[Rfam]
Rfam assigns this 153-nucleotide RNA from Amborella trichopoda to the family "MIR8565 microRNA precursor family". Gene Ontology terms of the family: RISC complex and miRNA-mediated post-transcriptional gene silencing. A search with the family's covariance model found it, with a score of 144 bits. The family's consensus secondary structure was predicted with RNAalifold.
RNA sequence: CCCCCACCCAUGUGUAUAGGACCCCAAAGGAUCACCAUUAAAUUUGGCAUGGAUCUCUAGAAAAGUUAUCACAUGAGUGUGGACUUGAUUUUUUUAAAGGUCCGUAUCAAAUUUAAUAGUGAUCUUUUGGGGUCCUAUACACAUGGGUGGGGG
Dot-bracket structure: .((((((((((((.((((((((((((((.(((.((.(((((((((((.((((((((.((((((((((((((((....)))))...))))))))))).)))))))).))))))))))).)).))).)))))))))))))).)))))))))))).
Numbered sequence: 001c002c003c004c005c006a007c008c009c010a011u012g013u014g015u016a017u018a019g020g021a022c023c024c025c026a027a028a029g030g031a032u033c034a035c036c037a038u039u040a041a042a043u044u045u046g047g048c049a050u051g052g053a054u055c056u057c058u059a060g061a062a063a064a065g066u067u068a069u070c071a072c073a074u075g076a077g078u079g080u081g082g083a084c085u086u087g088a089u090u091u092u093u094u095u096a097a098a099g100g101u102c103c104g105u106a107u108c109a110a111a112u113u114u115a116a117u118a119g120u121g122a123u124c125u126u127u128u129g130g131g132g133u134c135c136u137a138u139a140c141a142c143a144u145g146g147g148u149g150g151g152g153g
Stems, first nucleotide, its partner, number of pairs: 002152012015139014030124003034120002037117011049105008058096011069082005